[Rfam]
A member of the RNA family "Small nucleolar RNA SNORA30/SNORA37 family" from Phyllostomus discolor, 128 nucleotides long. It scores 113 bits against the family's covariance model. The family's consensus secondary structure was predicted with RNAfold. The members of this family belong to the H/ACA class of snoRNAs that guide the sites of modification of uridines to pseudouridines. Rfam classes the family as an H/ACA-box small nucleolar RNA. The source organism's lineage runs through Eukaryota, Bilateria, Chordata, Teleostomi and Phyllostomus.

RNA sequence: UUAGCACUUUCACAGUCCUCCCCUAGGCAGUGGGGCCAGGAUUUGGUAGCCGGUGCUGAAAGAAAACCUUUCAAUGCAUCCUUGCCCUGGGACUGUACCAGUGGCAGCUGUCACUCAAUGAUGCAGGG
Numbered sequence: 001u002u003a004g005c006a007c008u009u010u011c012a013c014a015g016u017c018c019u020c021c022c023c024u025a026g027g028c029a030g031u032g033g034g035g036c037c038a039g040g041a042u043u044u045g046g047u048a049g050c051c052g053g054u055g056c057u058g059a060a061a062g063a064a065a066a067c068c069u070u071u072c073a074a075u076g077c078a079u080c081c082u083u084g085c086c087c088u089g090g091g092a093c094u095g096u097a098c099c100a101g102u103g104g105c106a107g108c109u110g111u112c113a114c115u116c117a118a119u120g121a122u123g124c125a126g127g128g
Stems, first nucleotide, its partner, number of pairs: 003057006013045003016041004021035004069120001070118002073115001075113002078111002082107005087101004